[Rfam]
RNA sequence: UUAACUCAAAUUUGUAUGGAGUUGGAACAUUUGCCGCUAGGAGCGCUAUUCCAACUGCAUACAAAUUUGAGUUA
Numbered sequence: 001u002u003a004a005c006u007c008a009a010a011u012u013u014g015u016a017u018g019g020a021g022u023u024g025g026a027a028c029a030u031u032u033g034c035c036g037c038u039a040g041g042a043g044c045g046c047u048a049u050u051c052c053a054a055c056u057g058c059a060u061a062c063a064a065a066u067u068u069g070a071g072u073u074a
Stems, first nucleotide, its partner, number of pairs: 008068009018058001020056008029047001
RNA: mir-2807 microRNA precursor family
Organism: Bombyx mori